The family of this 337-nucleotide part of an RNA from Methylobacterium radiodurans is "Bacterial large subunit ribosomal RNA".
NCBI's taxonomy places the organism under Bacteria, Pseudomonadota, Alphaproteobacteria, Hyphomicrobiales, Methylobacterium.
A search with the family's covariance model found it, with a score of 2681 bits.
Gene Ontology terms of the family: structural constituent of ribosome and ribosome.
RNA sequence: UGAGAGAACGAUGCUGAAGGAACUCGGCAAUUUGCCUCCGUAACUUCGGGAUAAGGAGGCCCUGUCCUUGGGCAACCAGGGCCAGGGGGCACAGACCAGGGGGUGGCGACUGUUUAUCUAAAACACAGGGCUCUGCGAAGUCUGUAAGACGACGUAUAGGGCCUGACGCCUGCCCGGUGCCGGAAGGUUAAGAGGAGAGGUGAGAGCUUUGAAUCGAAGCCCCGGUAAACGGCGGCCGUAACUAUAACGGUCCUAAGGUAGCGAAAUUCCUUGUCGGGUAAGUUCCGACCUGCACGAAUGGCGUAACGAUCUCCCCGCUGUCUCCAGCAUCGGCUCA
Number, nucleotide and partner (000 for none) at each position: 001u337002g336003a335004g334005a000006g000007a000008a000009c332010g331011a330012u329013g328014c327015u326016g325017a000018a323019g322020g321021a000022a000023c000024u000025c000026g000027g000028c000029a000030a000031u000032u000033u000034g000035c059036c058037u057038c056039c055040g000041u000042a000043a000044c049045u000046u000047c000048g000049g044050g000051a000052u000053a000054a000055g039056g038057a037058g036059g035060c087061c086062c085063u084064g083065u000066c081067c080068u079069u078070g077071g076072g000073c000074a000075a000076c071077c070078a069079g068080g067081g066082c000083c064084a063085g062086g061087g060088g092089g000090c000091a000092c088093a000094g000095a000096c000097c000098a000099g000100g316101g315102g314103g313104u000105g311106g310107c308108g307109a000110c000111u125112g124113u123114u000115u000116a000117u000118c000119u000120a000121a000122a000123a113124c112125a111126c000127a000128g164129g163130g162131c161132u160133c159134u158135g157136c154137g000138a000139a000140g150141u149142c148143u000144g000145u000146a000147a000148g142149a141150c140151g000152a000153c000154g136155u000156a000157u135158a134159g133160g132161g131162c130163c129164u128165g000166a000167c303168g302169c301170c300171u000172g233173c232174c231175c000176g000177g230178u229179g226180c225181c224182g223183g222184a000185a000186g221187g220188u219189u000190a000191a000192g215193a214194g000195g000196a000197g210198a209199g208200g207201u206202g000203a000204g000205a000206g201207c200208u199209u198210u197211g000212a000213a000214u193215c192216g000217a000218a000219g188220c187221c186222c183223c182224g181225g180226u179227a000228a000229a178230c177231g174232g173233c172234g252235g251236c250237c249238g248239u247240a000241a000242c000243u000244a000245u000246a000247a239248c238249g237250g236251u235252c234253c257254u000255a000256a000257g253258g000259u000260a000261g000262c000263g290264a000265a000266a000267u000268u000269c000270c000271u000272u000273g289274u288275c287276g286277g285278g284279u000280a000281a000282g000283u000284u278285c277286c276287g275288a274289c273290c263291u000292g000293c000294a000295c000296g000297a000298a000299u000300g170301g169302c168303g167304u000305a000306a000307c108308g107309a000310u106311c105312u000313c103314c102315c101316c100317g000318c000319u000320g000321u020322c019323u018324c000325c016326a015327g014328c013329a012330u011331c010332g009333g000334c004335u003336c002337a001